[Rfam]
Nucleotides: 086
Stems, first nucleotide, its partner, number of pairs: 012037002017032006040080004045076003048071003055065002
Number, partner (000 for none) and nucleotide at each position: 001000u002000u003000c004000a005000g006000a007000a008000a009000a010000a011000g012037g013036c014000a015000a016000a017032g018031c019030u020029g021028c022027u023000g024000a025000a026000a027022g028021g029020c030019a031018g032017u033000c034000u035000c036013g037012c038000a039000a040080a041079g042078u043077u044000a045076c046075a047074g048071g049070u050069c051000u052000a053000a054000g055065g056064c057000u058000a059000u060000a061000a062000c063000u064056g065055c066000u067000a068000a069050g070049a071048c072000g073000g074047c075046u076045g077043a078042a079041c080040u081000g082000c083000c084000u085000g086000g

The record is an 86-nucleotide sequence from Sinobaca qinghaiensis, which matches "c-di-GMP-I riboswitch aptamer" in Rfam.
The family's consensus secondary structure is taken from published work.
Taxonomically the source falls in Sinobaca (Bacteria, Bacillota, Bacilli, Sporolactobacillaceae).
It scores 70 bits against the family's covariance model.